[Rfam]
RNA sequence: CAUAUCGUACUGCUUAAUUUCCGGAUUUCCGGAAAGCGGGGGACCCACAAUUAGGGGCGUAUCGGUCUGCAAGGACCGUAGGGAACCAUCUAUCCCGAGUCCGUCAGCUAACCUCGUCAGCACUGGAUGGGUCAAAG
Numbered sequence: 001c002a003u004a005u006c007g008u009a010c011u012g013c014u015u016a017a018u019u020u021c022c023g024g025a026u027u028u029c030c031g032g033a034a035a036g037c038g039g040g041g042g043a044c045c046c047a048c049a050a051u052u053a054g055g056g057g058c059g060u061a062u063c064g065g066u067c068u069g070c071a072a073g074g075a076c077c078g079u080a081g082g083g084a085a086c087c088a089u090c091u092a093u094c095c096c097g098a099g100u101c102c103g104u105c106a107g108c109u110a111a112c113c114u115c116g117u118c119a120g121c122a123c124u125g126g127a128u129g130g131g132u133c134a135a136a137g
Stems, first nucleotide, its partner, number of pairs: 011122004018035007036117006046054001055102003063078004081096004
Rfam assigns this 137-nucleotide RNA sequence from Cohnella lupini to the family "c-di-AMP riboswitch aptamer (ydaO/yuaA leader)".
Its family is annotated with regulation of gene expression and cyclic-di-AMP binding in the Gene Ontology.
The source organism's lineage runs through Bacteria, Bacillati, Bacillota, Caryophanales and Cohnella.
From the family's description: This family represents a conserved RNA structure found upstream of the ydaO and yuaA genes in Bacillus subtilis and related genes in other bacteria.